R2 RNA element: a 234-nucleotide RNA sequence from Agrilus planipennis. The literature on the family includes a 2004 paper in RNA by Ruschak et al., "Secondary structure models of the 3' untranslated regions of diverse R2 RNAs". Rfam links the family to the GO term regulation of reverse transcription. The source organism's lineage runs through Eukaryota, Panarthropoda, Mandibulata, Neuropteroidea and Agrilus. This family represents the 3' UTR region of the R2 retrotransposable element. This family is known to interact with the R2-encoded reverse transcriptase in a reaction known as target primed reverse transcription (TPRT). Rfam classes the family as a cis-regulatory element.
RNA sequence: AACUAAAAUAAAAACAUCAUUCACGGCACACGGUGGCUUGCCGAUUUCAUUUCUGUCGGAAACAUGGACGACGAACUAUCCGUCCGGCUGAAAAUGACCUUAAUUGGUCCUAGAAUGGCCUGAGGUAGAUGGGUUUUAGUCGGUAGGUCCGAGGACUUCUUCCUAGGGAAUCCGACACUACCCAGUCGUAUAGACGGCUGGGUGUCUUUUGAUGAUUUCCCCUCUUCCACGAAA
Numbered sequence: 001a002a003c004u005a006a007a008a009u010a011a012a013a014a015c016a017u018c019a020u021u022c023a024c025g026g027c028a029c030a031c032g033g034u035g036g037c038u039u040g041c042c043g044a045u046u047u048c049a050u051u052u053c054u055g056u057c058g059g060a061a062a063c064a065u066g067g068a069c070g071a072c073g074a075a076c077u078a079u080c081c082g083u084c085c086g087g088c089u090g091a092a093a094a095u096g097a098c099c100u101u102a103a104u105u106g107g108u109c110c111u112a113g114a115a116u117g118g119c120c121u122g123a124g125g126u127a128g129a130u131g132g133g134u135u136u137u138a139g140u141c142g143g144u145a146g147g148u149c150c151g152a153g154g155a156c157u158u159c160u161u162c163c164u165a166g167g168g169a170a171u172c173c174g175a176c177a178c179u180a181c182c183c184a185g186u187c188g189u190a191u192a193g194a195c196g197g198c199u200g201g202g203u204g205u206c207u208u209u210u211g212a213u214g215a216u217u218u219c220c221c222c223u224c225u226u227c228c229a230c231g232a233a234a
Base pairs, nucleotide, nucleotide: 104233105232107230108229124228125227127225128224131221132220133219139176140175141174142173143172148168149167150166152164153163154162155161178204180203181202182201183200184199